[Rfam]
RNA sequence: GAAGCGGGAAGCCGGCAGCGCAAGAGCGCGUAAGACCGGCGCCUCCGCCCGGCAACGGGCGGAUGUC
Numbered sequence: 001g002a003a004g005c006g007g008g009a010a011g012c013c014g015g016c017a018g019c020g021c022a023a024g025a026g027c028g029c030g031u032a033a034g035a036c037c038g039g040c041g042c043c044u045c046c047g048c049c050c051g052g053c054a055a056c057g058g059g060c061g062g063a064u065g066u067c
Stems, first nucleotide, its partner, number of pairs: 011040005018029004044063008
The family of this 67-nucleotide sequence from bacterium HR24 is "Transposase-2 RNA".
Pairs were carried over by alignment from the consensus structure, which is taken from published work.
The family's RNA type in Rfam is small RNA.